[Rfam]
RNA: Streptomyces-metH RNA
Organism: Streptomyces ipomoeae
RNA sequence: CCGGUCCGUCCCGUGGACGCCCCUGACCGUCCCCGGGUGCUCGGGCUACCCUGACGGCGUGCGCCUUCCCCCAGAAGACGCAAAGCCGACAGCCGUCGCACUCCAGGGAGCACCUUCAUG
Numbered sequence: 001c002c003g004g005u006c007c008g009u010c011c012c013g014u015g016g017a018c019g020c021c022c023c024u025g026a027c028c029g030u031c032c033c034c035g036g037g038u039g040c041u042c043g044g045g046c047u048a049c050c051c052u053g054a055c056g057g058c059g060u061g062c063g064c065c066u067u068c069c070c071c072c073a074g075a076a077g078a079c080g081c082a083a084a085g086c087c088g089a090c091a092g093c094c095g096u097c098g099c100a101c102u103c104c105a106g107g108g109a110g111c112a113c114c115u116u117c118a119u120g
Base pairs, nucleotide, nucleotide: 060082061081062080063079065077066076067075068074085099086098088097089096090095